[Rfam]
RNA: Small nucleolar RNA R38
Organism: Bagarius yarrelli
RNA sequence: UUAAGCCUGUGAUGAAAGAAAAGUUAUCCCUGUCUGAAAAGAUGGUGUGGAGACGUGGUAACCUGAGGCUCGG
Numbered sequence: 001u002u003a004a005g006c007c008u009g010u011g012a013u014g015a016a017a018g019a020a021a022a023g024u025u026a027u028c029c030c031u032g033u034c035u036g037a038a039a040a041g042a043u044g045g046u047g048u049g050g051a052g053a054c055g056u057g058g059u060a061a062c063c064u065g066a067g068g069c070u071c072g073g
Base pairs, nucleotide, nucleotide: 001073002072004070005069006068007067